[Rfam]
Lysine riboswitch aptamer: a 180-nucleotide RNA from Neobacillus piezotolerans.

RNA sequence: AGUGAAGGUAGAGGCGCGGGCUUCAAGAGUAUAAAUCCGGAGAAGAAUGGAUUCCAUGAAGGAUUUUGAAAGGGGAGACCGCCGAAGCGGCGAAUGGAUCCAUUCCGGACGCUUGCUGGUCCUGCAUUGAAUAAGUGCAGGAUUGUCAGGGUUUACUAAUCCUGGAGGGCUAUCUCACAU
Numbered sequence: 001a002g003u004g005a006a007g008g009u010a011g012a013g014g015c016g017c018g019g020g021c022u023u024c025a026a027g028a029g030u031a032u033a034a035a036u037c038c039g040g041a042g043a044a045g046a047a048u049g050g051a052u053u054c055c056a057u058g059a060a061g062g063a064u065u066u067u068g069a070a071a072g073g074g075g076a077g078a079c080c081g082c083c084g085a086a087g088c089g090g091c092g093a094a095u096g097g098a099u100c101c102a103u104u105c106c107g108g109a110c111g112c113u114u115g116c117u118g119g120u121c122c123u124g125c126a127u128u129g130a131a132u133a134a135g136u137g138c139a140g141g142a143u144u145g146u147c148a149g150g151g152u153u154u155a156c157u158a159a160u161c162c163u164g165g166a167g168g169g170c171u172a173u174c175u176c177a178c179a180u
Stems, first nucleotide, its partner, number of pairs: 006175006016082004021077004033066006086117004090112003095107003118144011146165007
The match comes from Rfam's covariance-model search (124 bits).